A member of the RNA family "sul1 RNA" from Sphingobium sp. TCM1, 54 nucleotides long. Rfam 15.1 lists 519 matches to the family in 480 species. It scores 55 bits against the family's covariance model. NCBI's taxonomy places the organism under Bacteria, Pseudomonadota, Alphaproteobacteria, Sphingomonadales, Sphingobium.

[Rfam]
RNA sequence: GCUGGACUCGGUUUUGCCGAGUGGCUCGGCCCGGCGCCUAUCCCCGGGAUAACC
Numbered sequence: 001g002c003u004g005g006a007c008u009c010g011g012u013u014u015u016g017c018c019g020a021g022u023g024g025c026u027c028g029g030c031c032c033g034g035c036g037c038c039u040a041u042c043c044c045c046g047g048g049a050u051a052a053c054c
Base pairs, nucleotide, nucleotide: 006022007021008020009019010018011017030048031047032046033045034044